[Rfam]
Background: The family of this 128-nucleotide RNA from Flavobacterium indicum is "Bacteroidete tryptophan peptide leader RNA".
RNA sequence: CAUCAAUCAAAUUCAGAAAAAUGAUUUCAAUUUUAAAUAAUACAUGGUGGUGGUCUAACUUACGUCGAUGGUCGUGAGAAGGUCGCUUAUUGUAUAAUUGAAACUAAAAUAUACUAAAAAGGCUUGUC
Number, nucleotide and partner (000 for none) at each position: 001c000002a000003u000004c000005a000006a000007u000008c000009a000010a000011a000012u000013u000014c000015a000016g000017a000018a000019a000020a000021a000022u000023g000024a000025u000026u000027u000028c000029a000030a000031u000032u000033u000034u000035a000036a099037a098038u097039a000040a095041u094042a093043c092044a091045u000046g000047g088048u000049g087050g086051u085052g084053g000054u000055c000056u081057a000058a000059c078060u077061u076062a072063c071064g000065u000066c000067g000068a000069u000070g000071g063072u062073c000074g000075u000076g061077a060078g059079a000080a000081g056082g000083u000084c052085g051086c050087u049088u047089a000090u000091u044092g043093u042094a041095u040096a000097a038098u037099u036100g000101a000102a000103a000104c000105u000106a000107a000108a000109a000110u000111a000112u000113a000114c000115u000116a000117a000118a000119a000120a000121g000122g000123c000124u000125u000126g000127u000128c000
Rfam classes the family as a cis-regulatory leader. The organism belongs to Flavobacterium indicum, within Bacteria. The family's consensus secondary structure is taken from published work.